Rfam assigns this 131-nucleotide RNA sequence from Nothocercus julius to the family "Small nucleolar RNA SNORA69". Rfam 15.1 lists 808 matches to the family in 584 species. It is annotated as an H/ACA-box small nucleolar RNA. Rfam's curators write: U69 is a member of the H/ACA class of small nucleolar RNAs (snoRNAs) which act as guides in the the modification of uridines to pseudouridines. The organism belongs to Nothocercus, within Eukaryota. It scores 72 bits against the family's covariance model.
RNA sequence: AAAGCAGGCUGCAAUUGCAGUGCCCCGUGCUGUGGGAGUACUGCCAUUUUCCUGCUGAGAGCAACGCUGUUAACGUCGGCUUUGGUUUUACCUCCCUCCUGGUGAAGCCAUUUGUCUUUAACGCGACAAAG
Numbered sequence: 001a002a003a004g005c006a007g008g009c010u011g012c013a014a015u016u017g018c019a020g021u022g023c024c025c026c027g028u029g030c031u032g033u034g035g036g037a038g039u040a041c042u043g044c045c046a047u048u049u050u051c052c053u054g055c056u057g058a059g060a061g062c063a064a065c066g067c068u069g070u071u072a073a074c075g076u077c078g079g080c081u082u083u084g085g086u087u088u089u090a091c092c093u094c095c096c097u098c099c100u101g102g103u104g105a106a107g108c109c110a111u112u113u114g115u116c117u118u119u120a121a122c123g124c125g126a127c128a129a130a131g
Base pairs, nucleotide, nucleotide: 003056004055005054006053007052008051018043019042020041021040022039023038025036026035067125068123069122070121071120072119073118075116077114083110084109085108086107087106088105089104090103091102092101